[Rfam]
RNA: Archaeal large subunit ribosomal RNA, nucleotides 893 to 1341
RNA sequence: CCCCCCGAGACUACUCGUAGGUAGAUCUCUGAGGAGAUGGAUUGUGUGGUAGAGCACCAAUUGGGUGUUUAGGGGAAGAAAUUCCUCGGCAUCUUGUUGAACUCCGAAUGUGCAAUCAUCGUAGAUUCAGGGUGAGUGAGGGCAUCUGGGGUAAUCUUGAUGUCCAAAAGGGAAACAACCCAGCCUUGUGUUAAGGUCCCCAAGUAUCAACUAAGUGUCAUAGAUAAAGAGUGUUUAUAACCUCAGACAACCAGGAGGUUGGCUUAGAAGCAGCCAUCCUUUAAAGAAAGCGUAACAGCUCACUGGUCAAGGUCGUAUGCCUCGAAAAUGGACGGGGCUAAGUUGAUCACCGAUACAUAAGCAUUCCUAAAAGGAAAUUGAGUAGGGGGGCGUCGUGCGUGGGCAGAAGUUUGGCCGUGAGGUCAAGUGGACCGCGUUCGAACGAGAAU
Numbered sequence: 001c002c003c004c005c006c007g008a009g010a011c012u013a014c015u016c017g018u019a020g021g022u023a024g025a026u027c028u029c030u031g032a033g034g035a036g037a038u039g040g041a042u043u044g045u046g047u048g049g050u051a052g053a054g055c056a057c058c059a060a061u062u063g064g065g066u067g068u069u070u071a072g073g074g075g076a077a078g079a080a081a082u083u084c085c086u087c088g089g090c091a092u093c094u095u096g097u098u099g100a101a102c103u104c105c106g107a108a109u110g111u112g113c114a115a116u117c118a119u120c121g122u123a124g125a126u127u128c129a130g131g132g133u134g135a136g137u138g139a140g141g142g143c144a145u146c147u148g149g150g151g152u153a154a155u156c157u158u159g160a161u162g163u164c165c166a167a168a169a170g171g172g173a174a175a176c177a178a179c180c181c182a183g184c185c186u187u188g189u190g191u192u193a194a195g196g197u198c199c200c201c202a203a204g205u206a207u208c209a210a211c212u213a214a215g216u217g218u219c220a221u222a223g224a225u226a227a228a229g230a231g232u233g234u235u236u237a238u239a240a241c242c243u244c245a246g247a248c249a250a251c252c253a254g255g256a257g258g259u260u261g262g263c264u265u266a267g268a269a270g271c272a273g274c275c276a277u278c279c280u281u282u283a284a285a286g287a288a289a290g291c292g293u294a295a296c297a298g299c300u301c302a303c304u305g306g307u308c309a310a311g312g313u314c315g316u317a318u319g320c321c322u323c324g325a326a327a328a329u330g331g332a333c334g335g336g337g338c339u340a341a342g343u344u345g346a347u348c349a350c351c352g353a354u355a356c357a358u359a360a361g362c363a364u365u366c367c368u369a370a371a372a373g374g375a376a377a378u379u380g381a382g383u384a385g386g387g388g389g390g391c392g393u394c395g396u397g398c399g400u401g402g403g404c405a406g407a408a409g410u411u412u413g414g415c416c417g418u419g420a421g422g423u424c425a426a427g428u429g430g431a432c433c434g435c436g437u438u439c440g441a442a443c444g445a446g447a448a449u
Base pairs, nucleotide, nucleotide: 001390002389003388004387005386006385011024012023013022014021015020026136027132028131029130030129031128032127036120037119038118040117041116042115043114044113045112046111047110052105053103054102059098060097061096063094064093065092066091067090068089072087073086074085075084076083077082140165141164142163143162144161145160146159148158149157170181171180172179185361186360187359188358189357190356191355195351196350197349204348206347207346208345209344210343211342229323230322231321233320234319236317237316238315240313241312242311250307251306252305253304254303256280257279258278261275262274263273281285286301290299291298362380363379364376365375366374367373368372391444393441394440395439397437398436399435400434401433402432409428410427411426412425413424414423415422416421